A member of the RNA family "Small nucleolar RNA SNORD42" from Sus scrofa, 67 nucleotides long. Lineage of the source: Eukaryota > Eumetazoa > Euteleostomi > Suidae > Sus.
RNA sequence: GUGCAUAUGAUGGAAAAACUUGAACUUCCUGAGGCUUGUGAUGUCUUCAAAGGAACCACUGAUGCAC
Dot-bracket structure: (((((.........................................................)))))
Numbered sequence: 001g002u003g004c005a006u007a008u009g010a011u012g013g014a015a016a017a018a019c020u021u022g023a024a025c026u027u028c029c030u031g032a033g034g035c036u037u038g039u040g041a042u043g044u045c046u047u048c049a050a051a052g053g054a055a056c057c058a059c060u061g062a063u064g065c066a067c
Stems, first nucleotide, its partner, number of pairs: 001067005
Rfam's curators write: snoRNA U42 is found in intron 3 of the ribosomal protein L23a (RPL23a) gene in humans and is also present in mice. The literature on the family includes a 2002 paper in Mol Cell Biol by Galardi et al., "Purified box C/D snoRNPs are able to reproduce site-specific 2'-O-methylation of target RNA in vitro".